[Rfam]
RNA sequence: CCAGAGAGCAACUCUACCGCUAUUUGAAAAAAUAGAGGAAAGUCCGGGCAACUUAGAGCGCCAUGCUUCCUAACGGGAAGAGGUUCGUGAGGGCCUAGUAAUGUAACAGAAAAUAACCGCCGCGGUCUUGUACCAGGUAAGGGUGAAAAGGUGAGGUAAGAGCUCACCGGUUCUUAUGGCAACAUAGGAAGCCGUACGUCUGAUGGGUUGUAAGGCCAUGUAUACCGGCAGCUGAGGACUGCUCGUCCAAUGCCGGGGGGUAGGCCGCUAGACUGUCGAGGUGACUCGAUGGCGAGAUAAAUGGUAGGGACUCCGAUUUUUUCGGAUGACAGGACCCGGCUUAUAUGCUCCUCUGGUCUU
Numbered sequence: 001c002c003a004g005a006g007a008g009c010a011a012c013u014c015u016a017c018c019g020c021u022a023u024u025u026g027a028a029a030a031a032a033u034a035g036a037g038g039a040a041a042g043u044c045c046g047g048g049c050a051a052c053u054u055a056g057a058g059c060g061c062c063a064u065g066c067u068u069c070c071u072a073a074c075g076g077g078a079a080g081a082g083g084u085u086c087g088u089g090a091g092g093g094c095c096u097a098g099u100a101a102u103g104u105a106a107c108a109g110a111a112a113a114u115a116a117c118c119g120c121c122g123c124g125g126u127c128u129u130g131u132a133c134c135a136g137g138u139a140a141g142g143g144u145g146a147a148a149a150g151g152u153g154a155g156g157u158a159a160g161a162g163c164u165c166a167c168c169g170g171u172u173c174u175u176a177u178g179g180c181a182a183c184a185u186a187g188g189a190a191g192c193c194g195u196a197c198g199u200c201u202g203a204u205g206g207g208u209u210g211u212a213a214g215g216c217c218a219u220g221u222a223u224a225c226c227g228g229c230a231g232c233u234g235a236g237g238a239c240u241g242c243u244c245g246u247c248c249a250a251u252g253c254c255g256g257g258g259g260g261u262a263g264g265c266c267g268c269u270a271g272a273c274u275g276u277c278g279a280g281g282u283g284a285c286u287c288g289a290u291g292g293c294g295a296g297a298u299a300a301a302u303g304g305u306a307g308g309g310a311c312u313c314c315g316a317u318u319u320u321u322u323c324g325g326a327u328g329a330c331a332g333g334a335c336c337c338g339g340c341u342u343a344u345a346u347g348c349u350c351c352u353c354u355g356g357u358c359u360u
Stems, first nucleotide, its partner, number of pairs: 001356005006350005011344001012309007020035006040342003044339005049210004056244004061206004066080005081096001083094004097201002101199005117142002119138003124133001150168006170192001171190008214266004225256005236248004273292008
This 360-nucleotide RNA from Williamwhitmania taraxaci belongs to the Rfam family "Bacterial RNase P class A". The base pairs follow the family's consensus structure, which is taken from published work.